[Rfam]
RNA sequence: AAAAAAUGGAGACCAGACACCAUAUAAACGGGGCCUAACCGAAAAGCCAGAUGAGUAGGACAAAU
Numbered sequence: 001a002a003a004a005a006a007u008g009g010a011g012a013c014c015a016g017a018c019a020c021c022a023u024a025u026a027a028a029c030g031g032g033g034c035c036u037a038a039c040c041g042a043a044a045a046g047c048c049a050g051a052u053g054a055g056u057a058g059g060a061c062a063a064a065u
Stems, first nucleotide, its partner, number of pairs: 006023004032048003039059002
DUF805 RNA: a 65-nucleotide sequence from Psychroflexus gondwanensis. The family is grouped with related families in Rfam's "DUF805 clan". A search with the family's covariance model found it, with a score of 72 bits. NCBI's taxonomy places the organism under Bacteria, Pseudomonadati, Bacteroidota, Flavobacteriales, Psychroflexus gondwanensis. By type it is a cis-regulatory element. The family has 46 seed sequences and 281 matches in Rfam 15.1.